[Rfam]
Small nucleolar RNA R12: an 80-nucleotide RNA from Medicago truncatula. Rfam 15.1 lists 992 matches to the family in 220 species. snoR12 is a C/D box small nucleolar RNA, which acts as a methylation guide for 25S ribosomal RNA in plants. snoR12 has been alternatively named snoZ44 in Arabidopsis and snoZ131 in rice. Rfam classes the family as a C/D-box small nucleolar RNA. Taxonomically the source falls in Medicago (Eukaryota, fabids, Fabales, Papilionoideae). Rfam links the family to the GO terms RNA processing and nucleolus. For this family Rfam cites "The high diversity of snoRNAs in plants: identification and comparative study of 120 snoRNA genes from Oryza sativa" (Chen et al., Nucleic Acids Res, 2003). A search with the family's covariance model found it, with a score of 70 bits.
Nucleotides: 080
Stems, first nucleotide, its partner, number of pairs: 001080005
Number, partner (000 for none) and nucleotide at each position: 001080u002079g003078u004077u005076g006000a007000a008000u009000g010000a011000u012000g013000a014000a015000a016000c017000a018000a019000a020000u021000c022000a023000a024000u025000c026000g027000g028000a029000u030000u031000c032000c033000c034000a035000u036000u037000g038000a039000u040000a041000u042000u043000u044000u045000c046000a047000u048000a049000g050000a051000u052000g053000a054000g055000a056000u057000u058000a059000c060000a061000a062000c063000c064000a065000g066000c067000u068000a069000c070000u071000u072000c073000u074000g075000a076005c077004a078003a079002c080001a